[Rfam]
RNA sequence: ACUGACAGCGGCGAUGGAGCCCGCCCUGAACCGCCGAUCCGGCUGAUGGCCCCUGCGAACAU
Numbered sequence: 001a002c003u004g005a006c007a008g009c010g011g012c013g014a015u016g017g018a019g020c021c022c023g024c025c026c027u028g029a030a031c032c033g034c035c036g037a038u039c040c041g042g043c044u045g046a047u048g049g050c051c052c053c054u055g056c057g058a059a060c061a062u
Stems, first nucleotide, its partner, number of pairs: 010025004016053002019050003033043003
A member of the RNA family "Fluoride riboswitch aptamer (crcB RNA motif)" from Mycobacterium heidelbergense, 62 nucleotides long. It scores 51 bits against the family's covariance model. NCBI's taxonomy places the organism under Bacteria, Bacillati, Actinomycetota, Actinomycetes, Mycobacterium simiae complex.